[Rfam]
RNA sequence: UAUCUGCUUUGAUGAUCUAUGAAACCAAUCACAUGUCAGACUUCAGAGAUUCCUUUAAAUAAAGGAAUCAAUGAGAUUGUAGUUCAUAAGUCUGAGCAGUUG
Numbered sequence: 001u002a003u004c005u006g007c008u009u010u011g012a013u014g015a016u017c018u019a020u021g022a023a024a025c026c027a028a029u030c031a032c033a034u035g036u037c038a039g040a041c042u043u044c045a046g047a048g049a050u051u052c053c054u055u056u057a058a059a060u061a062a063a064g065g066a067a068u069c070a071a072u073g074a075g076a077u078u079g080u081a082g083u084u085c086a087u088a089a090g091u092c093u094g095a096g097c098a099g100u101u102g
Stems, first nucleotide, its partner, number of pairs: 001102002004099004048069009